Rfam assigns this 120-nucleotide RNA from Paracoccus caeni to the family "Alphaproteobacterial ar14". A reference for the family is del Val et al. (2012), "A survey of sRNA families in alpha-proteobacteria", RNA Biol.

RNA sequence: CUGAUACGACGGUCCCUCUCCUCCUCCCCGGGACCGCUCGUAAGCGACAACGGCCUCUCCUCCUCCCCGGCCUUGUCGCACCCCUUACGCGGCCCACCUCCUCCCGGGCCAGCGUUAUGC
Numbered sequence: 001c002u003g004a005u006a007c008g009a010c011g012g013u014c015c016c017u018c019u020c021c022u023c024c025u026c027c028c029c030g031g032g033a034c035c036g037c038u039c040g041u042a043a044g045c046g047a048c049a050a051c052g053g054c055c056u057c058u059c060c061u062c063c064u065c066c067c068c069g070g071c072c073u074u075g076u077c078g079c080a081c082c083c084c085u086u087a088c089g090c091g092g093c094c095c096a097c098c099u100c101c102u103c104c105c106g107g108g109c110c111a112g113c114g115u116u117a118u119g120c
Stems, first nucleotide, its partner, number of pairs: 007040003010036007045078006052072004087115004091110005
It scores 66 bits against the family's covariance model. From the family's description: Smr14C2 was renamed NfeR1 (Nodule Formation Efficiency RNA) highly expressed in salt stress and during the symbiotic interaction on legume roots. Rfam classes the family as a small RNA. Gene Ontology term of the family: biological process involved in symbiotic interaction.